[Rfam]
RNA sequence: UGCAUGUAAAAUGUAAGUCUCUCUGGAUAAGAGUGUCUGCUAAAUGCCUGUAA
Numbered sequence: 001u002g003c004a005u006g007u008a009a010a011a012u013g014u015a016a017g018u019c020u021c022u023c024u025g026g027a028u029a030a031g032a033g034u035g036u037c038u039g040c041u042a043a044a045u046g047c048c049u050g051u052a053a
Base pairs, nucleotide, nucleotide: 012042013040014039015038019035021033022032023031024030

Rfam assigns this 53-nucleotide sequence from Anguilla anguilla to the family "UnaL2 LINE 3' element". Taxonomically the source falls in Anguilla (Eukaryota, Opisthokonta, Metazoa, Neopterygii). Its family is annotated with transposition, RNA-mediated in the Gene Ontology. From the family's description: The eel long interspersed element (LINE) UnaL2 and its partner short interspersed element (SINE) share a conserved 3' tail containing a stem-loop that is critical for their retrotransposition. Presumably, the first step of retrotransposition is the recognition of their 3' tails by UnaL2-encoded reverse transcriptase. The solution structure of a 17-nucleotide RNA derived from the 3' tail of UnaL2 was determined by NMR.